[Rfam]
The family of this 118-nucleotide sequence from Streptomyces aurantiacus is "SAM (S-adenosyl methionine) riboswitch aptamer".
Gene Ontology terms of the family: regulation of gene expression and S-adenosylmethionine metabolic process.
A reference for the family is Weinberg et al. (2008), "The aptamer core of SAM-IV riboswitches mimics the ligand-binding site of SAM-I riboswitches", RNA.

RNA sequence: GGUCAUGAGUGACAGCGACUACGGCCCCGGCCCGCUGUCCGGCAACCCUCCGUCCGUGGCGGGGUGCCCCGGGUGAAGACCAGGCCGUACGCAACAAGGCGUAUGGCAAGCGCGGACC
Numbered sequence: 001g002g003u004c005a006u007g008a009g010u011g012a013c014a015g016c017g018a019c020u021a022c023g024g025c026c027c028c029g030g031c032c033c034g035c036u037g038u039c040c041g042g043c044a045a046c047c048c049u050c051c052g053u054c055c056g057u058g059g060c061g062g063g064g065u066g067c068c069c070c071g072g073g074u075g076a077a078g079a080c081c082a083g084g085c086c087g088u089a090c091g092c093a094a095c096a097a098g099g100c101g102u103a104u105g106g107c108a109a110g111c112g113c114g115g116a117c118c
Base pairs, nucleotide, nucleotide: 001081002080003079004078009040011039012038013037014036015035016034023032024031041068042067043066046064047063048062050059051058084107085106086105087104088103089102090101091100092099